[Rfam]
RNA sequence: GGGCAGGGGCGCGGGUUCUGCAUACCGGUUGCUUGGUGUGCGUGAGGCGGCCGAGUUACGUGCGGAAGGACGCGUGGAAGGCGAUUGAGUGUGUGUGUGAGUGCAAGGCCAGAGUGCCAGUGUGUGUGCAAGGCGAGCGCAUGUCCGUGUGCCGAGCCGGCCCUCCCUAAACCUCUCCCCCCCCUACACGCUGAUCUUAUUUGAUCGGGUCGCGCUCCUGCCCCGCCGGCCUGACCCGAGAUGAGAAGCUCCCCUCCCGCGAAGCCCCGGUCGGGGCGCUGUGCGGCGAGGCCUAUGCGAACAGGCGGCGGCGGCCGCUCCCGGGUUCCCCGGAGCCAGCCCUUCGCGGGCCUGGCCGGGCCGGGCGCUCAGAAGUGAUGAGUUGAUCAGAUAGACGAGGCGGGGCUUGUCCCUGCCCUUGAGUAUCGAGGCGAUUCUGAUCUGA
Dot-bracket structure: ....................................................(..(((((((........))))))................(...((.................))...)..((...(..((.(..............).))..)...)).......)..)...........................(((..((((.(((.(..((.((...)).)).)))).)))).....))).....................((((.(((.(((..((..((..((((......)..)))..)))))))....))).)))).......(((.((((...............))).).)))...((((......((((((.............((((.((.....)).))))..............))))))...)))).
Small Cajal body-specific RNA 2: a 445-nucleotide RNA sequence from Monodelphis domestica. It is one of the family's seed sequences. Rfam 15.1 lists 612 matches to the family in 498 species. A reference for the family is Tycowski et al. (2004), "Guide RNAs with 5' caps and novel box C/D snoRNA-like domains for modification of snRNAs in metazoa", Curr Biol. Rfam classes the family as a small Cajal body RNA.